[Rfam]
RNA sequence: AAAGUUUGACAGACAAUCGCUGGUGAUGCUUGCAUCGCGAGAGGAAAGUCCGGGCUCCAUAGGGCAGGGUGCUGGAUAACGUCCAGUCAGCGCGAGCUGAAGGAUAGUGCCACAGAAAUGGACCGCCGAUGGCGUCGCAAGACGCACAGGCAAGGGUGGAACCGUGGUGUAAGAGACCACGAGGGGUACUGGUGACUUUACCCCUGGUAAACCCCACUUGGAGCAAGACCUAAUGGGACGCGGUCUGCAGGCUUGCCUGACAGACAGCCUUAGCCCGAGGCGCGUCCGGGUUGGUCGCUUGAGCUGUAUAGCAAUGUAUGGCCUAGAUAGAUGAUUGUCACUUCAAUGGUGGGAGGGUAUCGUAGCCCGCUGCACCACCGGAAGUACAGAACCCGGCUUACGGCAAGCUUUCCAU
Dot-bracket structure: ((((((((.(.(((((((.((.((((((....)))))).))....[[[.[[[[[((((...[[[[.((((((((((.....)))))(((((....)))).)((...(((((...........(((((....(((((....)))))...)))..)).......((((((.......)))))).((((((..(....)..)))))).)))..)))))))))))))...((((.....((((((.........................(((((.]]]]))))))))))).....))))......((((((((....))))))))..........)))))))....................................................]]]]]]]]..).))))))))....

Bacterial RNase P class A: a 415-nucleotide sequence from Paenibacillus sp. HGF7. Pairs were carried over by alignment from the consensus structure, which is taken from published work. The match comes from Rfam's covariance-model search (277 bits). Rfam describes the family as follows. Ribonuclease P (RNase P) is a ubiquitous endoribonuclease, found in archaea, bacteria and eukarya as well as chloroplasts and mitochondria. Gene Ontology terms of the family: tRNA processing, dimeric ribonuclease P complex and ribonuclease P activity.